Rfam assigns this 83-nucleotide RNA sequence to the family "Stem loopII regulatory element in POLB". The family's RNA type in Rfam is cis-regulatory element. Its family is annotated with regulation of RNA stability in the Gene Ontology. The family has 19 seed sequences and 197 matches in Rfam 15.1. The literature on the family includes a 2007 paper in Nucleic Acids Res by Sarnowska et al., "Hairpin structure within the 3'UTR of DNA polymerase beta mRNA acts as a post-transcriptional regulatory element and interacts with Hax-1".

RNA sequence: AUCCCACGAGGAGUCCUAAGUUAUUGCUUAACCUUUGCUAUGUAAGGGUUGGGUGUUUUAGGUGAUUGCCUCUUCUCUGUGCU
Number, nucleotide and partner (000 for none) at each position: 001a000002u000003c000004c000005c000006a000007c000008g000009a076010g075011g074012a073013g000014u000015c000016c061017u060018a059019a058020g000021u000022u000023a000024u000025u053026g000027c000028u000029u000030a000031a049032c048033c047034u046035u045036u044037g043038c042039u000040a000041u000042g038043u037044a036045a035046g034047g033048g032049u031050u000051g000052g000053g025054u000055g000056u000057u000058u019059u018060a017061g016062g000063u000064g000065a000066u000067u000068g000069c000070c000071u000072c000073u012074u011075c010076u009077c000078u000079g000080u000081g000082c000083u000